[Rfam]
The family of this 211-nucleotide sequence from Shahe picorna-like virus 8 is "Cripavirus internal ribosome entry site (IRES)".
RNA sequence: AGUGUGAUGUGAACUCACCCUUUUACAAUAAAAUUUCUACUAGUAAAAGUAAAAGGAUGCUUAACCGUUAAAUGCUAUCACACUAACCGCGUGCUCUAUUUAGAGUUAUAUCCUAGGAUGCGCGAAGAGCAAACCUCUUAAUAUCCAAGGAACUAGUAGUCGAGUAAAUGCACUAAGUUAUGCUUUACUUUAAAUAAAUAACUUGCGAAUC
Dot-bracket structure: (((((((((............................[..[.[................................)))))))))...[[[[[.((((....)))).....((((.((((]]]]](.(((.....))).)...)))).))))..].]..]..[[[[[.[.[[[.((((((.]]].]]]]]].........))))))......

For this family Rfam cites "A tertiary structure model of the internal ribosome entry site (IRES) for methionine-independent initiation of translation" (Kanamori and Nakashima, RNA, 2001). The organism belongs to Riboviria, within Viruses. About the family: This family represents a Cripavirus internal ribosome entry site (IRES) which is required for the production of capsid proteins through IRES-mediated translation.